[Rfam]
Shown here is a 391-nucleotide sequence from Kurthia sibirica, a member of the family "Bacterial RNase P class B".
Its family is annotated with ribonuclease P activity, tRNA processing and dimeric ribonuclease P complex in the Gene Ontology.
NCBI's taxonomy places the organism under Bacteria, Bacillati, Bacillota, Bacilli, Kurthia.
The match comes from Rfam's covariance-model search (287 bits).
RNA sequence: GUGAAUGAGUAAUCGCUGCAACGCUUGACGUUGUUGAGGAAAGUCCAUGCUCGCACGGUUCUGAGAUGACCGUAGUGUUCGUGCUUCGCGAAGUCAUAAGCGGAGGUAGCUGAAAUGCUAACGGCGGGAGGAAGCCCUAAGUCUUCGGAUAAGGGUGACACUUUCUGAAAGUGCCACAGAGACGAAUGUUAUAAGGAAACUUAUAAACUGGAACGAGGUAAACCCCACGAGUGAGCAACCCAAAUUAUGGUAGGGGCGUUCUCCUGAAGUAAAUGAAUGGAUGGAGAGAUGUAUAUGCUUGCAUAUGCAUAGAUAGAUGAUUACUACCCACAGUAGUACGAGGCAAUUAUUGUCGUUUGAGUACGAAGGGUACAAAACAUGGCUUAUAUUU
Numbered sequence: 001g002u003g004a005a006u007g008a009g010u011a012a013u014c015g016c017u018g019c020a021a022c023g024c025u026u027g028a029c030g031u032u033g034u035u036g037a038g039g040a041a042a043g044u045c046c047a048u049g050c051u052c053g054c055a056c057g058g059u060u061c062u063g064a065g066a067u068g069a070c071c072g073u074a075g076u077g078u079u080c081g082u083g084c085u086u087c088g089c090g091a092a093g094u095c096a097u098a099a100g101c102g103g104a105g106g107u108a109g110c111u112g113a114a115a116u117g118c119u120a121a122c123g124g125c126g127g128g129a130g131g132a133a134g135c136c137c138u139a140a141g142u143c144u145u146c147g148g149a150u151a152a153g154g155g156u157g158a159c160a161c162u163u164u165c166u167g168a169a170a171g172u173g174c175c176a177c178a179g180a181g182a183c184g185a186a187u188g189u190u191a192u193a194a195g196g197a198a199a200c201u202u203a204u205a206a207a208c209u210g211g212a213a214c215g216a217g218g219u220a221a222a223c224c225c226c227a228c229g230a231g232u233g234a235g236c237a238a239c240c241c242a243a244a245u246u247a248u249g250g251u252a253g254g255g256g257c258g259u260u261c262u263c264c265u266g267a268a269g270u271a272a273a274u275g276a277a278u279g280g281a282u283g284g285a286g287a288g289a290u291g292u293a294u295a296u297g298c299u300u301g302c303a304u305a306u307g308c309a310u311a312g313a314u315a316g317a318u319g320a321u322u323a324c325u326a327c328c329c330a331c332a333g334u335a336g337u338a339c340g341a342g343g344c345a346a347u348u349a350u351u352g353u354c355g356u357u358u359g360a361g362u363a364c365g366a367a368g369g370g371u372a373c374a375a376a377a378c379a380u381g382g383c384u385u386a387u388a389u390u391u
Stems, first nucleotide, its partner, number of pairs: 004391002007387001008325007016036001018034004041385003045382005050235005055073004060069002079230005084105006106122001107120004123225002126165004134156004141150003171223002173219003189206007239255003259288006289310009327370003333364003
Dot-bracket structure: ...((.((((((((.(.((((.........)))).)....[[[.[[[[[(((((((((.((......)))))).....(((((((((((..........))))))(((((......)))).)((.((((....((((...(((....)))..)))).....)))).....(((((.............(((((((....)))))))..........)))..))))))))))))))...(((...........)))...((((((..................))))))(((((((((....)))))))))........))))))).(((...(((..........................)))...))).......]]]]]]]].)..))
For this family Rfam cites "The Ribonuclease P Database" (Brown, Nucleic Acids Res, 1999). The family's RNA type in Rfam is ribozyme.